A member of the RNA family "PhrS" from Azotobacter vinelandii, 208 nucleotides long. The family's consensus secondary structure was predicted with CMfinder. The sequence is in the family's curated seed alignment. A reference for the family is Livny et al. (2006), "Identification of 17 Pseudomonas aeruginosa sRNAs and prediction of sRNA-encoding genes in 10 diverse pathogens using the bioinformatic tool sRNAPredict2", Nucleic Acids Res.
RNA sequence: AUCGAAGAGAGCAACGGUGAAGAGUGCCAGCCAUGUUGGUCGAUGAAGUGGUAGUGGCGGGGACGGCAGUCGCGGGAUUGAUAUUCGUUUUCACCGGUGGGAUCGGUUAUUUCAUCUGGAAGGACGCACGGAAAUACAAAUAACGAAGUCCUUCGGAUUCCAGAGCACGCAAGGCACUUUCGGGCGACGUUAGUCGCCCUUUUUUUUU
Numbered sequence: 001a002u003c004g005a006a007g008a009g010a011g012c013a014a015c016g017g018u019g020a021a022g023a024g025u026g027c028c029a030g031c032c033a034u035g036u037u038g039g040u041c042g043a044u045g046a047a048g049u050g051g052u053a054g055u056g057g058c059g060g061g062g063a064c065g066g067c068a069g070u071c072g073c074g075g076g077a078u079u080g081a082u083a084u085u086c087g088u089u090u091u092c093a094c095c096g097g098u099g100g101g102a103u104c105g106g107u108u109a110u111u112u113c114a115u116c117u118g119g120a121a122g123g124a125c126g127c128a129c130g131g132a133a134a135u136a137c138a139a140a141u142a143a144c145g146a147a148g149u150c151c152u153u154c155g156g157a158u159u160c161c162a163g164a165g166c167a168c169g170c171a172a173g174g175c176a177c178u179u180u181c182g183g184g185c186g187a188c189g190u191u192a193g194u195c196g197c198c199c200u201u202u203u204u205u206u207u208u
Stems, first nucleotide, its partner, number of pairs: 010098001012096001048058002075086004165175002168173001182199007

Rfam classes the family as a small RNA.